RNA sequence: GGUAGUAGCAAAUAUUCGAAUGAGAUCUUGGAUGACUGAAGUGGAGGAGGGUUUCGUGUCAACAGCAGUUGAACACGAGUUAGCCAAUCCUAAGCUCUAUGGGAAACUGAUAUAUAUUAAGCAUUUAACCAAAUACAACACACACACCUUGCUGGCGUUGUUGAUGCAACAUCCACGUAUAUAUUAAAUGAGCGAAAGGGAAUCCGGUUACAAUUCCGGAGCCUGUUGGGUAUACGUUUGCAUUGGCGGUAAUACCGGUAACACGGUAGCGCCUUUGUAAUCAUGGCAACAUGAAUCCUUUCCUUCGAGAAGCCAACAAGAGAUAUCGGAAGAGUUUUCUUUUCUGUUUUACAGCCACACUGGCCAUGGAAGUCUUUCAUAGAGAGAUAUGGUCGGACAAGCUGGUAGAGCAUGGUAUUAAAUUGCUGUGUCGAUAUUCUCUUCUUGGACCUUGAAAAUCGAAGACUGGGGCACGCAAACUCCCAACAGCUUGUACCGAAUCCGCAGCAGGUCUCCAAGGUUUAGAGUCUCUAGUCGA
Numbered sequence: 001g002g003u004a005g006u007a008g009c010a011a012a013u014a015u016u017c018g019a020a021u022g023a024g025a026u027c028u029u030g031g032a033u034g035a036c037u038g039a040a041g042u043g044g045a046g047g048a049g050g051g052u053u054u055c056g057u058g059u060c061a062a063c064a065g066c067a068g069u070u071g072a073a074c075a076c077g078a079g080u081u082a083g084c085c086a087a088u089c090c091u092a093a094g095c096u097c098u099a100u101g102g103g104a105a106a107c108u109g110a111u112a113u114a115u116a117u118u119a120a121g122c123a124u125u126u127a128a129c130c131a132a133a134u135a136c137a138a139c140a141c142a143c144a145c146a147c148c149u150u151g152c153u154g155g156c157g158u159u160g161u162u163g164a165u166g167c168a169a170c171a172u173c174c175a176c177g178u179a180u181a182u183a184u185u186a187a188a189u190g191a192g193c194g195a196a197a198g199g200g201a202a203u204c205c206g207g208u209u210a211c212a213a214u215u216c217c218g219g220a221g222c223c224u225g226u227u228g229g230g231u232a233u234a235c236g237u238u239u240g241c242a243u244u245g246g247c248g249g250u251a252a253u254a255c256c257g258g259u260a261a262c263a264c265g266g267u268a269g270c271g272c273c274u275u276u277g278u279a280a281u282c283a284u285g286g287c288a289a290c291a292u293g294a295a296u297c298c299u300u301u302c303c304u305u306c307g308a309g310a311a312g313c314c315a316a317c318a319a320g321a322g323a324u325a326u327c328g329g330a331a332g333a334g335u336u337u338u339c340u341u342u343u344c345u346g347u348u349u350u351a352c353a354g355c356c357a358c359a360c361u362g363g364c365c366a367u368g369g370a371a372g373u374c375u376u377u378c379a380u381a382g383a384g385a386g387a388u389a390u391g392g393u394c395g396g397a398c399a400a401g402c403u404g405g406u407a408g409a410g411c412a413u414g415g416u417a418u419u420a421a422a423u424u425g426c427u428g429u430g431u432c433g434a435u436a437u438u439c440u441c442u443u444c445u446u447g448g449a450c451c452u453u454g455a456a457a458a459u460c461g462a463a464g465a466c467u468g469g470g471g472c473a474c475g476c477a478a479a480c481u482c483c484c485a486a487c488a489g490c491u492u493g494u495a496c497c498g499a500a501u502c503c504g505c506a507g508c509a510g511g512u513c514u515c516c517a518a519g520g521u522u523u524a525g526a527g528u529c530u531c532u533a534g535u536c537g538a
Stems, first nucleotide, its partner, number of pairs: 016032002019029002034536004043516004049497002054078006063071002085493003089199002094193002096112001098110001100109003120185002203220005223489004228483003231477001236296004303464006313448003318443006326434002328348002331345003352404004363393006373383003411430007502511002518530004
The family of this 538-nucleotide part of an RNA from Culex quinquefasciatus is "Eukaryotic large subunit ribosomal RNA". The sequence is in the family's curated seed alignment. Rfam links the family to the GO terms ribosome and structural constituent of ribosome. Lineage of the source: Eukaryota > Pancrustacea > Insecta > Eumetabola > Culex pipiens complex.